[Rfam]
RNA sequence: GGGGACCUGCGGGGCCCUAUAUCGAAACGGACCGAAAGGUCCAAAGCUACGGAAGACAGAGA
Numbered sequence: 001g002g003g004g005a006c007c008u009g010c011g012g013g014g015c016c017c018u019a020u021a022u023c024g025a026a027a028c029g030g031a032c033c034g035a036a037a038g039g040u041c042c043a044a045a046g047c048u049a050c051g052g053a054a055g056a057c058a059g060a061g062a
Base pairs, nucleotide, nucleotide: 001018002017003016004015006014007013008012029042030041031040032039033038
Description
A member of the RNA family "L2-Alphaproteobacteria ribosomal protein leader", 62 nucleotides long. The base pairs follow the family's consensus structure, which is taken from published work.